[Rfam]
RNA sequence: CUUGCUCGAAACCAUACUCUCACCUCCCCGUGGUGAGCAGGGGACAACAGUUAUAUACAUGUUAUAAUUGACAAUUCAUGACAUAUGUACAACUGGCUAACGGAAGA
Numbered sequence: 001c002u003u004g005c006u007c008g009a010a011a012c013c014a015u016a017c018u019c020u021c022a023c024c025u026c027c028c029c030g031u032g033g034u035g036a037g038c039a040g041g042g043g044a045c046a047a048c049a050g051u052u053a054u055a056u057a058c059a060u061g062u063u064a065u066a067a068u069u070g071a072c073a074a075u076u077c078a079u080g081a082c083a084u085a086u087g088u089a090c091a092a093c094u095g096g097c098u099a100a101c102g103g104a105a106g107a
Stems, first nucleotide, its partner, number of pairs: 001041007022034003048095005
RNA: HDV ribozyme from F. prausnitzii
Organism: Mytilus coruscus